[Rfam]
RNA sequence: GCACAUCUGAAAAGCGGGCCGCUCGCUGUGGCUCCACCCAAGGUGCAAGUCGUGUCACCGGCCCCCGGUCGCGUGAUCACGGUGAACCUCUCAGGUUCCGAUGACAGAUGGGGAGGA
Number, nucleotide and partner (000 for none) at each position: 001g000002c112003a000004c110005a109006u108007c107008u106009g105010a000011a000012a000013a000014g000015c000016g034017g033018g032019c031020c000021g000022c000023u000024c000025g000026c000027u000028g000029u000030g000031g019032c018033u017034c016035c000036a096037c095038c094039c000040a091041a000042g000043g090044u000045g088046c000047a000048a000049g083050u082051c081052g080053u079054g078055u000056c000057a000058c000059c000060g000061g000062c000063c000064c000065c000066c000067g000068g000069u000070c000071g000072c000073g000074u000075g000076a000077u000078c054079a053080c052081g051082g050083u049084g000085a000086a000087c000088c045089u000090c043091u040092c000093a000094g038095g037096u036097u000098c000099c000100g000101a000102u000103g000104a000105c009106a008107g007108a006109u005110g004111g000112g002113g000114a000115g000116g000117a000